Annotation
Shown here is a 411-nucleotide part of an RNA from Volvox reticuliferus, a member of the family "Eukaryotic large subunit ribosomal RNA". Clan: LSU clan. NCBI's taxonomy places the organism under Eukaryota, Viridiplantae, Chlorophyceae, Chlamydomonadales, Volvox. It scores 3306 bits against the family's covariance model.

RNA sequence: CGACCUGAGCUCAGACAAGACUACCCGCUGAACUUAAGCAUAUCAUUAAGCGGUGGAAAAGAAACUAACAAGGAUUCCCUUAGUAACGGCGAGCGAACCGGGAAUGGCCCAACUUGAAAAUCUCCCUAUGGAGAAUUGUAGUCUAGAGAAGCUCCUUCAUGGUCUGGCGGAAUUCAAGUUGGAUCGAAUGCCGCGUCAGAGAGGGUGAUAACCCCGUCGAUUCCUGUCUGGACCUAUCACGAGGUGCUUUCAACGAGUCGGGUUGUUUGGGAAUGCAGCCCUAAUUUGGAGGUAAAUCCCUUCUAAGGCUAAAUACUGCUGAGAGACCGAUAGCGAACAAGUACCGUGAGGGAAAGAUGAAAAGAACUUUGAAAAGAGAGUUAAAAGUGCUUGAAAUUGUUGAGAGGGAAG
Number, nucleotide and partner (000 for none) at each position: 001c000002g000003a000004c000005c000006u000007g000008a000009g000010c000011u000012c000013a000014g000015a000016c000017a000018a000019g000020a000021c000022u000023a000024c055025c053026c052027g051028c050029u049030g000031a000032a000033c000034u000035u042036a041037a000038g000039c000040a000041u036042a035043u000044c000045a000046u000047u000048a000049a029050g028051c027052g026053g025054u000055g024056g000057a000058a000059a000060a000061g000062a000063a000064a000065c072066u071067a000068a000069c000070a000071a066072g065073g000074a000075u000076u103077c102078c101079c100080u000081u000082a000083g000084u000085a000086a000087c093088g000089g000090c000091g000092a000093g087094c000095g000096a000097a000098c000099c000100g079101g078102g077103a076104a000105u000106g310107g309108c308109c307110c000111a000112a000113c000114u141115u140116g139117a000118a137119a136120a000121u134122c133123u132124c131125c130126c000127u000128a000129u000130g125131g124132a123133g122134a121135a000136u119137u118138g000139u116140a115141g114142u000143c000144u000145a000146g000147a000148g251149a250150a248151g247152c246153u000154c000155c244156u243157u242158c241159a000160u000161g234162g233163u232164c231165u230166g229167g000168c226169g225170g224171a000172a222173u000174u220175c000176a000177a000178g194179u000180u193181g192182g191183a000184u000185c000186g000187a000188a000189u000190g000191c182192c181193g180194c178195g000196u000197c201198a000199g000200a000201g197202a000203g000204g214205g213206u000207g000208a000209u000210a000211a000212c000213c205214c204215c000216g000217u000218c000219g000220a174221u000222u172223c000224c170225u169226g168227u000228c000229u166230g165231g164232a163233c162234c161235u000236a000237u000238c000239a000240c000241g158242a157243g156244g155245u000246g152247c151248u150249u000250u149251c148252a000253a000254c000255g000256a000257g000258u000259c000260g281261g280262g279263u278264u277265g276266u275267u000268u000269g000270g000271g000272a000273a000274u000275g266276c265277a264278g263279c262280c261281c260282u000283a000284a000285u000286u000287u000288g303289g302290a301291g300292g000293u000294a000295a000296a000297u000298c000299c000300c291301u290302u289303c288304u000305a000306a000307g109308g108309c107310u106311a000312a000313a000314u000315a000316c000317u000318g000319c000320u000321g000322a000323g000324a000325g000326a000327c000328c000329g000330a000331u000332a000333g000334c000335g000336a000337a000338c000339a000340a000341g000342u000343a000344c351345c350346g000347u000348g000349a000350g345351g344352g000353a000354a000355a000356g000357a000358u000359g000360a000361a000362a000363a000364g000365a000366a000367c378368u377369u376370u375371g000372a000373a000374a000375a370376g369377a368378g367379a000380g000381u000382u000383a000384a000385a000386a000387g000388u000389g000390c000391u000392u000393g000394a000395a000396a000397u000398u000399g000400u000401u000402g000403a000404g000405a000406g000407g000408g000409a000410a000411g000